Shown here is an 83-nucleotide sequence from Platycodon grandiflorus, a member of the family "Plastid-rps12 3UTR RNA". It is annotated as a cis-regulatory element. About the family: Plastid rpl20 is a non-coding RNA (ncRNA) recognised in plastids. It was found in the three prime untranslated region (3UTR) of rps12 gene, its 3UTR location sugest a role in transcript maduration. The literature on the family includes a 2023 paper in Plant Commun by Richter et al., "Retrograde signaling in plants: A critical review focusing on the GUN pathway and beyond". Rfam's curators put it in the seed alignment. NCBI's taxonomy places the organism under Eukaryota, Streptophyta, Tracheophyta, Gunneridae, Platycodon.

RNA sequence: GGUUUCCAUUGGUGUAACUCCAAUCAUCUCAAUUUAAGAAUUCUCCAUUGGUAACAAAUGGUUAUCCAUUAAGCGGAAGAAAU
Numbered sequence: 001g002g003u004u005u006c007c008a009u010u011g012g013u014g015u016a017a018c019u020c021c022a023a024u025c026a027u028c029u030c031a032a033u034u035u036a037a038g039a040a041u042u043c044u045c046c047a048u049u050g051g052u053a054a055c056a057a058a059u060g061g062u063u064a065u066c067c068a069u070u071a072a073g074c075g076g077a078a079g080a081a082a083u
Base pairs, nucleotide, nucleotide: 009023010022011021012020044077045076046075047069048068050066051065052064053063054062055061